[Rfam]
RNA sequence: AAAACAAUAGCGCUCAAUCCGAAUAGGAGCGGGGGAACCACGACAAGUACUUCAUGUACUAGGGGUGAAUUCUAGGCAUAGCGAGGCAUUUCAGCAGAAAUUAUCUUCGCCUUUUUCCAUGCCGCCAUUUUUGCAUGUUCAUACAAAAAUGAAGAAAGGGCGACUCUCACUAGCCCUAACCCGACAGCUAACCUCGUCAGCGUAAUGAGAGAAUCG
Numbered sequence: 001a002a003a004a005c006a007a008u009a010g011c012g013c014u015c016a017a018u019c020c021g022a023a024u025a026g027g028a029g030c031g032g033g034g035g036a037a038c039c040a041c042g043a044c045a046a047g048u049a050c051u052u053c054a055u056g057u058a059c060u061a062g063g064g065g066u067g068a069a070u071u072c073u074a075g076g077c078a079u080a081g082c083g084a085g086g087c088a089u090u091u092c093a094g095c096a097g098a099a100a101u102u103a104u105c106u107u108c109g110c111c112u113u114u115u116u117c118c119a120u121g122c123c124g125c126c127a128u129u130u131u132u133g134c135a136u137g138u139u140c141a142u143a144c145a146a147a148a149a150u151g152a153a154g155a156a157a158g159g160g161c162g163a164c165u166c167u168c169a170c171u172a173g174c175c176c177u178a179a180c181c182c183g184a185c186a187g188c189u190a191a192c193c194u195c196g197u198c199a200g201c202g203u204a205a206u207g208a209g210a211g212a213a214u215c216g
Stems, first nucleotide, its partner, number of pairs: 011202004018028003029197006039062001063182003071155003158176004
Rfam assigns this 216-nucleotide sequence from Priestia koreensis to the family "c-di-AMP riboswitch aptamer (ydaO/yuaA leader)". Rfam describes the family as follows. This family represents a conserved RNA structure found upstream of the ydaO and yuaA genes in Bacillus subtilis and related genes in other bacteria. Pairs were carried over by alignment from the consensus structure.